The family of this 68-nucleotide RNA sequence from Salmo salar is "mir-8/mir-141/mir-200 microRNA precursor family".
Gene Ontology terms of the family: miRNA-mediated post-transcriptional gene silencing and RISC complex.
The match comes from Rfam's covariance-model search (65 bits).

RNA sequence: AUCCCCAUCUUACGAGGCAGCAUUGGAUAUAAUCACUCUCUCUAAUACUGCCUGGUAAUGAUGAUGGU
Numbered sequence: 001a002u003c004c005c006c007a008u009c010u011u012a013c014g015a016g017g018c019a020g021c022a023u024u025g026g027a028u029a030u031a032a033u034c035a036c037u038c039u040c041u042c043u044a045a046u047a048c049u050g051c052c053u054g055g056u057a058a059u060g061a062u063g064a065u066g067g068u
Stems, first nucleotide, its partner, number of pairs: 002067002006063004010058004015053006022046006

NCBI's taxonomy places the organism under Eukaryota, Bilateria, Osteoglossocephalai, Clupeocephala, Salmo. Its Rfam clan is "mir-8 microRNA precursor clan".